[Rfam]
RNA sequence: UCCCCGCUUUUCCUCCCUGAGCGGGUGCCUUUACGUGUCACAGCAAAAAGGCUUCCAGGCCCGGCUGACCUCGUGUCAUCCGGGCAUUUUUUU
Numbered sequence: 001u002c003c004c005c006g007c008u009u010u011u012c013c014u015c016c017c018u019g020a021g022c023g024g025g026u027g028c029c030u031u032u033a034c035g036u037g038u039c040a041c042a043g044c045a046a047a048a049a050g051g052c053u054u055c056c057a058g059g060c061c062c063g064g065c066u067g068a069c070c071u072c073g074u075g076u077c078a079u080c081c082g083g084g085c086a087u088u089u090u091u092u093u
Stems, first nucleotide, its partner, number of pairs: 003025006027052006059085006066078004
RNA: Burkholderia RNA 7 (anti-hemB)
Organism: Polaromonas eurypsychrophila